[Rfam]
This 245-nucleotide sequence from Podarcis lilfordi belongs to the Rfam family "Small nucleolar RNA SNORD17". The snoRNA HBI-43 belongs to the C/D family of snoRNAs, guiding 2'O-ribose methylation at position U3797 of the 28S rRNA. Pseudouridylation in position U3797 is predicted to be guided by the H/ACA snoRNA ACA48. The family's consensus secondary structure was predicted with RNAalifold. The family has 19 seed sequences and 1,015 matches in Rfam 15.1. The literature on the family includes a 2001 paper in EMBO J by Huttenhofer et al., "RNomics: an experimental approach that identifies 201 candidates for novel, small, non-messenger RNAs in mouse". Rfam links the family to the GO terms nucleolus and RNA processing. It is annotated as a C/D-box small nucleolar RNA. The source organism's lineage runs through Eukaryota, Opisthokonta, Bilateria, Sauria and Podarcis.
RNA sequence: GUGAAGUGAUGAUGAAGUUUAUCCAUUCUCUGAGUGUUGCUGCUCUGCCCUUCCUGCCACAUCUUGAUUCCUGUUCUUGGGUCUUGGUGUUGAGUGGCCUCCAGGCACCUUUAAGCCUUCCAGUGUUCUACUGGGGGGCAUGGGGAUGCUUGGCUGGCUGCUGGCAGGGCCUGGGUGGAACAAGCAGGGUCAGAGACCUUUAUGGGGCUCUGACUCAACCAGGAAGAAUGAAACUGUCUGAUCAC
Numbered sequence: 001g002u003g004a005a006g007u008g009a010u011g012a013u014g015a016a017g018u019u020u021a022u023c024c025a026u027u028c029u030c031u032g033a034g035u036g037u038u039g040c041u042g043c044u045c046u047g048c049c050c051u052u053c054c055u056g057c058c059a060c061a062u063c064u065u066g067a068u069u070c071c072u073g074u075u076c077u078u079g080g081g082u083c084u085u086g087g088u089g090u091u092g093a094g095u096g097g098c099c100u101c102c103a104g105g106c107a108c109c110u111u112u113a114a115g116c117c118u119u120c121c122a123g124u125g126u127u128c129u130a131c132u133g134g135g136g137g138g139c140a141u142g143g144g145g146a147u148g149c150u151u152g153g154c155u156g157g158c159u160g161c162u163g164g165c166a167g168g169g170c171c172u173g174g175g176u177g178g179a180a181c182a183a184g185c186a187g188g189g190u191c192a193g194a195g196a197c198c199u200u201u202a203u204g205g206g207g208c209u210c211u212g213a214c215u216c217a218a219c220c221a222g223g224a225a226g227a228a229u230g231a232a233a234c235u236g237u238c239u240g241a242u243c244a245c
Base pairs, nucleotide, nucleotide: 010244011243012242013241017237018236024230025229026228027227028226029225030223031222034219035218039185040184041183044179045178046177047176048175049174050173052169053168054167055166057164058163061090062089064087065086066085069081070080071079094161095160096159097158098157099156107147109144113141115139116138117137118136119135120134121133122132123131124130125129187216188215189214190213191212192211193210194209197206198205